[Rfam]
RNA sequence: UUCCACCGUAAAGGGGAGUAGCGUCAGGAUUAUCCUGAAACAAAGUCGUCAUUACAUGAACCUUGUUCAUCGGCUUUGUUGGCAUAUUAUUGUGCUU
Numbered sequence: 001u002u003c004c005a006c007c008g009u010a011a012a013g014g015g016g017a018g019u020a021g022c023g024u025c026a027g028g029a030u031u032a033u034c035c036u037g038a039a040a041c042a043a044a045g046u047c048g049u050c051a052u053u054a055c056a057u058g059a060a061c062c063u064u065g066u067u068c069a070u071c072g073g074c075u076u077u078g079u080u081g082g083c084a085u086a087u088u089a090u091u092g093u094g095c096u097u
Stems, first nucleotide, its partner, number of pairs: 025037003039080010056070005
RNA: Manganese Mn2+ riboswitch aptamer (yybP-ykoY)